[Rfam]
RNA sequence: ACAAGAGUUCAAGGCCAUAGCAGAAGUGCUCACAGCACAGUCCUGUCAGAUUAUAACAUCUAUGAAUUCUGCU
Numbered sequence: 001a002c003a004a005g006a007g008u009u010c011a012a013g014g015c016c017a018u019a020g021c022a023g024a025a026g027u028g029c030u031c032a033c034a035g036c037a038c039a040g041u042c043c044u045g046u047c048a049g050a051u052u053a054u055a056a057c058a059u060c061u062a063u064g065a066a067u068u069c070u071g072c073u
Stems, first nucleotide, its partner, number of pairs: 013043002015040001019073007026038003048061004
RNA: Mammalian CPEB3 ribozyme